This 147-nucleotide sequence from Bradyrhizobium diazoefficiens belongs to the Rfam family "flg-Rhizobiales RNA". The family's consensus secondary structure is taken from published work.
[Rfam]
Nucleotides: 147
Base pairs, nucleotide, nucleotide: 001034002033003032004031006030007029008028010025011024012023013022014021015020043080044079045078046077048075055068056067057066058065059064099124100123101122102121103120105119106118107117108116109115
Number, partner (000 for none) and nucleotide at each position: 001034g002033a003032g004031a005000c006030c007029c008028g009000g010025g011024g012023g013022u014021u015020u016000g017000g018000g019000a020015g021014a022013a023012c024011c025010u026000g027000a028008c029007g030006g031004u032003c033002u034001c035000g036000u037000u038000c039000a040000c041000g042000g043080g044079g045078u046077c047000c048075g049000c050000c051000a052000a053000g054000g055068c056067g057066c058065u059064u060000g061000g062000g063000a064059g065058a066057g067056c068055g069000a070000g071000g072000a073000g074000g075048c076000a077046g078045a079044u080043c081000u082000c083000a084000c085000u086000c087000a088000g089000g090000g091000g092000a093000g094000a095000u096000c097000u098000u099124c100123c101122g102121a103120u104000g105119c106118a107117g108116a109115a110000c111000g112000c113000g114000c115109u116108u117107c118106u119105g120103a121102u122101c123100g124099g125000c126000u127000u128000g129000u130000c131000a132000c133000g134000g135000c136000a137000g138000a139000u140000g141000a142000c143000g144000u145000u146000g147000g